[Rfam]
Rfam assigns this 57-nucleotide RNA sequence from Corynebacterium epidermidicanis to the family "msiK RNA". Taxonomically the source falls in Corynebacterium (Bacteria, Actinomycetota, Actinomycetes, Mycobacteriales). The family's consensus secondary structure is taken from published work.
RNA sequence: UGCACCUGCCUCAUCACUCGGAUCGUUCGGCACGUACCUGCCGAUGGAGGAAAUUCU
Numbered sequence: 001u002g003c004a005c006c007u008g009c010c011u012c013a014u015c016a017c018u019c020g021g022a023u024c025g026u027u028c029g030g031c032a033c034g035u036a037c038c039u040g041c042c043g044a045u046g047g048a049g050g051a052a053a054u055u056c057u
Base pairs, nucleotide, nucleotide: 010050011049015046016045027044028043029042030041031040032039